[Rfam]
RNA sequence: GCUGGGCACAGUGGCAUACGUCUCUAAUCCCAGCUACCCGUGAAGCUGAGACAGGAGGAUGACUUGAGCCCAGGAACUCUGGGUUGUAGUGUGCUAUGCCAGUUGAGUGUCCGCACUAAGUCUGGCAUCAAUAUGGUGACCUCCCGGGUGUGGGGAACUACCAGGAUGCCUAAGGAGAGGUGCACCAGCCCAGGUCAGAAAGGGAGCAGGUCAAAACUCCCAUGCUGAUCAAUAGUGGAAUCGUACCUGUGAAUAGCCACUGCACUCCAGCCUGGGUAAUAUAGCAAGACCCUAUCUCUG
Numbered sequence: 001g002c003u004g005g006g007c008a009c010a011g012u013g014g015c016a017u018a019c020g021u022c023u024c025u026a027a028u029c030c031c032a033g034c035u036a037c038c039c040g041u042g043a044a045g046c047u048g049a050g051a052c053a054g055g056a057g058g059a060u061g062a063c064u065u066g067a068g069c070c071c072a073g074g075a076a077c078u079c080u081g082g083g084u085u086g087u088a089g090u091g092u093g094c095u096a097u098g099c100c101a102g103u104u105g106a107g108u109g110u111c112c113g114c115a116c117u118a119a120g121u122c123u124g125g126c127a128u129c130a131a132u133a134u135g136g137u138g139a140c141c142u143c144c145c146g147g148g149u150g151u152g153g154g155g156a157a158c159u160a161c162c163a164g165g166a167u168g169c170c171u172a173a174g175g176a177g178a179g180g181u182g183c184a185c186c187a188g189c190c191c192a193g194g195u196c197a198g199a200a201a202g203g204g205a206g207c208a209g210g211u212c213a214a215a216a217c218u219c220c221c222a223u224g225c226u227g228a229u230c231a232a233u234a235g236u237g238g239a240a241u242c243g244u245a246c247c248u249g250u251g252a253a254u255a256g257c258c259a260c261u262g263c264a265c266u267c268c269a270g271c272c273u274g275g276g277u278a279a280u281a282u283a284g285c286a287a288g289a290c291c292c293u294a295u296c297u298c299u300g
Base pairs, nucleotide, nucleotide: 001046002045003044004023005022006021007020010017028043029042048298049297050296051295053293054292055291060287063284064283068277069276070275071274072273073272074271079270080269081268082267083266085264086263087262088261089260090259091258093257094256095255096254097253099251104249105248107246108245109244110243112238114237115236116235117234118233120230123227124226125225126224127223128222129168130167132165134163135162136161137160138159142155143154144153145152146151169175170174177220179218180217181216188211189210190209195204196203
The record is a 300-nucleotide sequence from Tupaia belangeri, which matches "Metazoan signal recognition particle RNA" in Rfam. Pairs were carried over by alignment from the consensus structure, which is taken from published work. On this family, see Batey et al., J Mol Biol 2001: "Structural and energetic analysis of RNA recognition by a universally conserved protein from the signal recognition particle". It is annotated as a non-coding RNA gene. NCBI's taxonomy places the organism under Eukaryota, Vertebrata, Teleostomi, Tetrapoda, Tupaia belangeri.